[Rfam]
RNA sequence: UUCUGAUAAUAGCAAACUUAUUGAAAGAUAAGGACGCAAAGCUAUGGGCCUAAUGGAUAAAUUCCAAUGGUUGCCAGGUUGCCAAA
Numbered sequence: 001u002u003c004u005g006a007u008a009a010u011a012g013c014a015a016a017c018u019u020a021u022u023g024a025a026a027g028a029u030a031a032g033g034a035c036g037c038a039a040a041g042c043u044a045u046g047g048g049c050c051u052a053a054u055g056g057a058u059a060a061a062u063u064c065c066a067a068u069g070g071u072u073g074c075c076a077g078g079u080u081g082c083c084a085a086a
Base pairs, nucleotide, nucleotide: 012037013036017032018031019030020029021028022027040080041079042078043077045076046075047074048071049070050069055065056064057063